[Rfam]
RNA sequence: CCCCCCGCAGGGAGAGAAGACCCCGUGGAGCUUUACCGCAGCCCGGCGUUGGCCCCCGGGUGGGGGUGCGUAGCGUAGGUGGGAGCCGAUGAGCCACCCUCUCCGGGGGGUGGGGAGGCGUCCAUGAAACACCACCCACCCCCGCCCGGGGGCCUAACCCCGCCCCGGGUGGGCGGGGGACAGCGUCGGGUGGGCGGUUUGGCUGGGGCGGCACGCCCGCGAAAGGGUAACACGGGCGCCCAAAGGUCGGCUCAGGCGGGUCAGAACUCCGCCGUGGAGUGCAAGGGCAAAAGCCGGCCUGACCGGACCUCUGAAAGCAAGGGGUCCGGCCGGGAAACCGUGGCCUAGCGCACGCUCGUGCCCCCUCGGUGGGGGCCGGGCACGACAGAAAAGUUACCCCGGGGAUAACAGAGUCGUCGCGGGCGAGAGCCCCCAUCGACCCCGCGGUUUGCUACCUCGAUGUCGGCUCUUCCCAUCCUGGGGGUGCAGCAGCCCCCAAGGGUGGGGCUGCCCGCCCAUUAAAGGGGAACGUGAGCUGGGUUCAGACCGUCGUGAGACAGGUCGGUCUCUACCCGCGGGGGGUGUG
Numbered sequence: 001c002c003c004c005c006c007g008c009a010g011g012g013a014g015a016g017a018a019g020a021c022c023c024c025g026u027g028g029a030g031c032u033u034u035a036c037c038g039c040a041g042c043c044c045g046g047c048g049u050u051g052g053c054c055c056c057c058g059g060g061u062g063g064g065g066g067u068g069c070g071u072a073g074c075g076u077a078g079g080u081g082g083g084a085g086c087c088g089a090u091g092a093g094c095c096a097c098c099c100u101c102u103c104c105g106g107g108g109g110g111u112g113g114g115g116a117g118g119c120g121u122c123c124a125u126g127a128a129a130c131a132c133c134a135c136c137c138a139c140c141c142c143c144g145c146c147c148g149g150g151g152g153c154c155u156a157a158c159c160c161c162g163c164c165c166c167g168g169g170u171g172g173g174c175g176g177g178g179g180a181c182a183g184c185g186u187c188g189g190g191u192g193g194g195c196g197g198u199u200u201g202g203c204u205g206g207g208g209c210g211g212c213a214c215g216c217c218c219g220c221g222a223a224a225g226g227g228u229a230a231c232a233c234g235g236g237c238g239c240c241c242a243a244a245g246g247u248c249g250g251c252u253c254a255g256g257c258g259g260g261u262c263a264g265a266a267c268u269c270c271g272c273c274g275u276g277g278a279g280u281g282c283a284a285g286g287g288c289a290a291a292a293g294c295c296g297g298c299c300u301g302a303c304c305g306g307a308c309c310u311c312u313g314a315a316a317g318c319a320a321g322g323g324g325u326c327c328g329g330c331c332g333g334g335a336a337a338c339c340g341u342g343g344c345c346u347a348g349c350g351c352a353c354g355c356u357c358g359u360g361c362c363c364c365c366u367c368g369g370u371g372g373g374g375g376c377c378g379g380g381c382a383c384g385a386c387a388g389a390a391a392a393g394u395u396a397c398c399c400c401g402g403g404g405a406u407a408a409c410a411g412a413g414u415c416g417u418c419g420c421g422g423g424c425g426a427g428a429g430c431c432c433c434c435a436u437c438g439a440c441c442c443c444g445c446g447g448u449u450u451g452c453u454a455c456c457u458c459g460a461u462g463u464c465g466g467c468u469c470u471u472c473c474c475a476u477c478c479u480g481g482g483g484g485u486g487c488a489g490c491a492g493c494c495c496c497c498a499a500g501g502g503u504g505g506g507g508c509u510g511c512c513c514g515c516c517c518a519u520u521a522a523a524g525g526g527g528a529a530c531g532u533g534a535g536c537u538g539g540g541u542u543c544a545g546a547c548c549g550u551c552g553u554g555a556g557a558c559a560g561g562u563c564g565g566u567c568u569c570u571a572c573c574c575g576c577g578g579g580g581g582g583u584g585u586g
Stems, first nucleotide, its partner, number of pairs: 001582008010574003014569002022403004027399002029395005035198004042190007051154018078136005085119003097110005158178008201214001202212003215237005240343002246298006252278002255273006279288002303329009331340001333338001354381005360376005412453003416450001417447007427437002464539001465537004469531001470528005477502002481496005505517004545563004549558003

This 586-nucleotide part of an RNA from Aeropyrum pernix belongs to the Rfam family "Archaeal large subunit ribosomal RNA". The organism belongs to Aeropyrum, within Archaea.